[Rfam]
RNA: FMN riboswitch aptamer (RFN element)
Organism: Bacillus oleivorans
RNA sequence: UGAUUCCUUCGGGGCAGGGUGAAAAUCCCGACCGGCGGUGAUGAGCGAUAGCUCUUAGUCCGUGACCCGUAUUGCGAUACGGUGGAUUCGGUGAAAAUCCGAAGCCGACAGUGAAAGUCUGGAUGGGAGAAGGAAAAC
Numbered sequence: 001u002g003a004u005u006c007c008u009u010c011g012g013g014g015c016a017g018g019g020u021g022a023a024a025a026u027c028c029c030g031a032c033c034g035g036c037g038g039u040g041a042u043g044a045g046c047g048a049u050a051g052c053u054c055u056u057a058g059u060c061c062g063u064g065a066c067c068c069g070u071a072u073u074g075c076g077a078u079a080c081g082g083u084g085g086a087u088u089c090g091g092u093g094a095a096a097a098u099c100c101g102a103a104g105c106c107g108a109c110a111g112u113g114a115a116a117g118u119c120u121g122g123a124u125g126g127g128a129g130a131a132g133g134a135a136a137a138c
Base pairs, nucleotide, nucleotide: 004135005134006133007132008131009130010129017029018028019027031118032117033107034106035063036062037061038060058105059104067082068081087103088102089101090100091099109121110120111119
Dot-bracket structure: ...(((((((......(((.......))).[[((((((...................[[))))...((............))....(((((.......)))))]])).(((.....]]))).......)))))))...